[Rfam]
RNA: Streptococcus sRNA SpF22
Organism: Streptococcus infantis
RNA sequence: UGCGUUCAGCACGCGCUUGUCAAUUUCUUGCAGAACAGGGCUACGAAGUUAUCAAUGUCCAAGGUGGCAUGGAUGCCUUAGAAUAAGAAAAACUCCCUUUGAGACCAAAAUAAAAAAGUUUCAAGGGGAAUUUAUU
Dot-bracket structure: ........(((......)))............(((..((((....(.((((((.........)))))).)....))))...............(((((((((..(............)..))))))))).)))...